[Rfam]
RNA sequence: UUCUUAUCAAGAGAGGCGGAGGGACUGGCCCUAUGAUGCCCGGCAACCAAUCUUCCAUGUUGUGGAGAUAUGGUGCCAAUUCCAGCAGAGCAGCAAGCUCUGAGAGAUGAGAA
Numbered sequence: 001u002u003c004u005u006a007u008c009a010a011g012a013g014a015g016g017c018g019g020a021g022g023g024a025c026u027g028g029c030c031c032u033a034u035g036a037u038g039c040c041c042g043g044c045a046a047c048c049a050a051u052c053u054u055c056c057a058u059g060u061u062g063u064g065g066a067g068a069u070a071u072g073g074u075g076c077c078a079a080u081u082c083c084a085g086c087a088g089a090g091c092a093g094c095a096a097g098c099u100c101u102g103a104g105a106g107a108u109g110a111g112a113a
Stems, first nucleotide, its partner, number of pairs: 001113008013041001015040003021031003025085004042077004047073002050069006081105001086102006
RNA: SAM riboswitch aptamer (S box leader)
Organism: Brevibacillus fulvus